[Rfam]
RNA sequence: GGAGUGCCAAUGAUUUCACAUCCAUAACUCAUCCUUGCACUAUGAGUUUACCAGUGAAGAAAACAUUGGGGAAUAUGCAGUCUGAGGCGCUC
Numbered sequence: 001g002g003a004g005u006g007c008c009a010a011u012g013a014u015u016u017c018a019c020a021u022c023c024a025u026a027a028c029u030c031a032u033c034c035u036u037g038c039a040c041u042a043u044g045a046g047u048u049u050a051c052c053a054g055u056g057a058a059g060a061a062a063a064c065a066u067u068g069g070g071g072a073a074u075a076u077g078c079a080g081u082c083u084g085a086g087g088c089g090c091u092c
Stems, first nucleotide, its partner, number of pairs: 002092007
The family of this 92-nucleotide RNA from Zizania palustris is "Small nucleolar RNA snoR26". Taxonomically the source falls in Zizania (Eukaryota, Tracheophyta, Petrosaviidae, Oryzoideae). The literature on the family includes a 2001 paper in RNA by Brown et al., "Multiple snoRNA gene clusters from Arabidopsis". A search with the family's covariance model found it, with a score of 72 bits. Gene Ontology terms of the family: nucleolus and RNA processing. The base pairs follow the family's consensus structure, which was predicted with WAR. The family has 8 seed sequences and 611 matches in Rfam 15.1.